[Rfam]
RNA sequence: AACCAUACCUCGGGGAGCCUUUGUGUAAGGCUGAGAAUUGGCAAAAGCCAAAAACCCGUUGAACCUGAACCGGUUAGGACCGGCGGAGGGAAGGUGCAUGGAAUACUC
Numbered sequence: 001a002a003c004c005a006u007a008c009c010u011c012g013g014g015g016a017g018c019c020u021u022u023g024u025g026u027a028a029g030g031c032u033g034a035g036a037a038u039u040g041g042c043a044a045a046a047g048c049c050a051a052a053a054a055c056c057c058g059u060u061g062a063a064c065c066u067g068a069a070c071c072g073g074u075u076a077g078g079a080c081c082g083g084c085g086g087a088g089g090g091a092a093g094g095u096g097c098a099u100g101g102a103a104u105a106c107u108c
Stems, first nucleotide, its partner, number of pairs: 006096005011058004017031005038051005064089003070083004